[Rfam]
RNA sequence: GUUUUCGUGUGAAUAGUGUUCAGUAUUAAGGACAGGGGUGUUUGUGUGUGGAUAGUGUUCAGCAUUAAGGACAUGGAUGUUUCUAU
Numbered sequence: 001g002u003u004u005u006c007g008u009g010u011g012a013a014u015a016g017u018g019u020u021c022a023g024u025a026u027u028a029a030g031g032a033c034a035g036g037g038g039u040g041u042u043u044g045u046g047u048g049u050g051g052a053u054a055g056u057g058u059u060c061a062g063c064a065u066u067a068a069g070g071a072c073a074u075g076g077a078u079g080u081u082u083c084u085a086u
Base pairs, nucleotide, nucleotide: 004077005076006075007074008073009072010071014067015066016065017064018063019062020061022059023058024057025056026055027054028053030047032045033044034043
mir-2060 microRNA precursor family: an 86-nucleotide RNA sequence from Branchiostoma floridae. A search with the family's covariance model found it, with a score of 62 bits. Lineage of the source: Eukaryota > Bilateria > Deuterostomia > Amphioxiformes > Branchiostoma. The base pairs follow the family's consensus structure, which was predicted with RNAalifold. The family has 7 seed sequences and 3,696 matches in Rfam 15.1.